This 205-nucleotide RNA from Alkalihalobacillus trypoxylicola belongs to the Rfam family "Bacillus sRNA ncr1575". The family's RNA type in Rfam is small RNA. A search with the family's covariance model found it, with a score of 128 bits.
RNA sequence: UAAAUAAGAGCGAAAGGGCUGAUGGGUGGACAAUGGAUAACUAAUUCUCUUUUCAAACGUAUGAAAUGAUAUAUAUUUCAACGAACGAAGAUAGGAUUAGUCUGACCAUUUUUCCAUACUCCAUUGAACUAUAAUCAUUUAUAGUCUCUUUCUGUACGGUCAAAAACGGACUAAUCCUUCCAAAUGAAUUUGGGAGGAUUUUUUG
Numbered sequence: 001u002a003a004a005u006a007a008g009a010g011c012g013a014a015a016g017g018g019c020u021g022a023u024g025g026g027u028g029g030a031c032a033a034u035g036g037a038u039a040a041c042u043a044a045u046u047c048u049c050u051u052u053u054c055a056a057a058c059g060u061a062u063g064a065a066a067u068g069a070u071a072u073a074u075a076u077u078u079c080a081a082c083g084a085a086c087g088a089a090g091a092u093a094g095g096a097u098u099a100g101u102c103u104g105a106c107c108a109u110u111u112u113u114c115c116a117u118a119c120u121c122c123a124u125u126g127a128a129c130u131a132u133a134a135u136c137a138u139u140u141a142u143a144g145u146c147u148c149u150u151u152c153u154g155u156a157c158g159g160u161c162a163a164a165a166a167c168g169g170a171c172u173a174a175u176c177c178u179u180c181c182a183a184a185u186g187a188a189u190u191u192g193g194g195a196g197g198a199u200u201u202u203u204u205g
Stems, first nucleotide, its partner, number of pairs: 016115003023108003029102003042099007050091005058083003062080006123150001128145007173200011
The family's consensus secondary structure is taken from published work.